[Rfam]
RNA sequence: AUGGAGGUUCCCGAAAAGCCUAAAGAGAGUAGGGG
Number, nucleotide and partner (000 for none) at each position: 001a000002u000003g020004g019005a000006g000007g000008u000009u000010c034011c033012c032013g000014a000015a000016a000017a000018g000019c004020c003021u000022a000023a000024a000025g000026a000027g000028a000029g000030u000031a000032g012033g011034g010035g000
The record is a 35-nucleotide RNA sequence from Saccharicrinis fermentans, which matches "DUF805b RNA" in Rfam. The family's RNA type in Rfam is cis-regulatory element. NCBI's taxonomy places the organism under Bacteria, Bacteroidota, Marinilabiliales, Saccharicrinis, Saccharicrinis fermentans. The base pairs follow the family's consensus structure, which is taken from published work.